The record is a 138-nucleotide RNA sequence from Monodelphis domestica, which matches "Small nucleolar RNA SNORA42/SNORA80 family" in Rfam.
Nucleotides: 138
Stems, first nucleotide, its partner, number of pairs: 001062004005057002008054001015050006022043003025039002075131006086121002091116002093112006
Number, partner (000 for none) and nucleotide at each position: 001062g002061c003060a004059u005057g006056g007000c008054u009000u010000u011000g012000g013000a014000u015050u016049u017048a018047u019046g020045g021000a022043a023042a024041a025039u026038c027000c028000a029000u030000u031000c032000a033000a034000a035000a036000c037000u038026g039025g040000g041024u042023u043022u044000c045020u046019c047018a048017u049016a050015g051000u052000g053000u054008a055000u056006u057005c058000c059004a060003u061002g062001c063000c064000a065000a066000a067000g068000a069000a070000a071000u072000u073000g074000a075131c076130u077129a078128c079127c080126c081000c082000c083000a084000a085000c086121c087120a088000u089000u090000g091116c092115c093112g094111g095110g096109c097108c098107u099000g100000a101000a102000u103000c104000u105000g106000u107098a108097g109096g110095c111094u112093u113000u114000a115092g116091g117000c118000a119000c120087u121086g122000a123000a124000g125000u126080g127079g128078g129077u130076a131075g132000g133000a134000c135000a136000g137000g138000a
NCBI's taxonomy places the organism under Eukaryota, Metazoa, Chordata, Didelphidae, Monodelphis. Rfam classes the family as an H/ACA-box small nucleolar RNA. The members of this family belong to the H/ACA class of snoRNAs that guide the sites of modification of uridines to pseudouridines. Human ACA42 (SNORA42) was cloned from HeLa cells by immunoprecipitation with anti-GAR1 antibody. Its is predicted to guide the pseudouridylation of residues U109 and U572 of 18S rRNA. ACA42 shares the same host gene with ACA26, ACA46, ACA50. Rfam links the family to the GO terms RNA processing and nucleolus.